[Rfam]
msiK RNA: a 59-nucleotide sequence from Aeriscardovia aeriphila. The family has 120 seed sequences and 1,374 matches in Rfam 15.1. Pairs were carried over by alignment from the consensus structure, which is taken from published work. Rfam classes the family as a cis-regulatory element.
RNA sequence: AAGUAUCAACCUUUUACUCGGAUCGUUCGGCACGUACCUGCCGAUGGAAGGAAUGACGA
Numbered sequence: 001a002a003g004u005a006u007c008a009a010c011c012u013u014u015u016a017c018u019c020g021g022a023u024c025g026u027u028c029g030g031c032a033c034g035u036a037c038c039u040g041c042c043g044a045u046g047g048a049a050g051g052a053a054u055g056a057c058g059a
Stems, first nucleotide, its partner, number of pairs: 010051007027044006